[Rfam]
Rfam assigns this 67-nucleotide sequence from Pipistrellus kuhlii to the family "mir-9256 microRNA precursor family". Gene Ontology terms of the family: miRNA-mediated post-transcriptional gene silencing and RISC complex.
RNA sequence: AAUUACACUGAGUGACCAGAUUAUUAUGAUCACAGAACACAUAAUAAUCUGGCCACUCAGUGUAUAU
Numbered sequence: 001a002a003u004u005a006c007a008c009u010g011a012g013u014g015a016c017c018a019g020a021u022u023a024u025u026a027u028g029a030u031c032a033c034a035g036a037a038c039a040c041a042u043a044a045u046a047a048u049c050u051g052g053c054c055a056c057u058c059a060g061u062g063u064a065u066a067u
Base pairs, nucleotide, nucleotide: 004064005063006062007061008060009059010058011057012056013055014054016052017051019049020048021047022046023045024044025043026042027041028040
A search with the family's covariance model found it, with a score of 84 bits.